Rfam assigns this 121-nucleotide RNA sequence from Fulvimarina manganoxydans to the family "Guanidine-I riboswitch aptamer". Rfam's curators write: This family represents a conserved RNA structure found upstream of the ykkC and yxkD genes in Bacillus subtilis and related genes in other bacteria. The function of this family is unclear although it has been suggested that it may function to switch on efflux pumps and detoxification systems in response to harmful environmental molecules. The match comes from Rfam's covariance-model search (84 bits). Taxonomically the source falls in Fulvimarina (Bacteria, Alphaproteobacteria, Hyphomicrobiales, Aurantimonadaceae).

RNA sequence: GUGCGGUGCGUCUAGGGUUCCGGCUCGUCUUCAUCCUUCAAGGUGGGACGGGUGGCUGGUCCGAGAGACGCACUCCCCGCCGGCCGGCGGGGAGACACGGCGGGCCAAAAUCCCGGGAGAA
Number, nucleotide and partner (000 for none) at each position: 001g000002u000003g000004c000005g000006g000007u072008g071009c070010g069011u068012c067013u000014a000015g062016g061017g000018u000019u000020c059021c058022g056023g053024c052025u051026c050027g049028u048029c047030u046031u045032c000033a000034u000035c000036c000037u000038u000039c000040a000041a000042g000043g000044u000045g031046g030047g029048a028049c027050g026051g025052g024053u023054g000055g000056c022057u000058g021059g020060u000061c016062c015063g000064a000065g000066a000067g012068a011069c010070g009071c008072a007073c094074u093075c092076c091077c090078c089079g088080c087081c000082g000083g000084c000085c000086g000087g080088c079089g078090g077091g076092g075093a074094g073095a000096c116097a000098c119099g000100g000101c000102g114103g113104g112105c000106c000107a000108a000109a000110a000111u000112c104113c103114c102115g000116g096117g000118a000119g098120a000121a000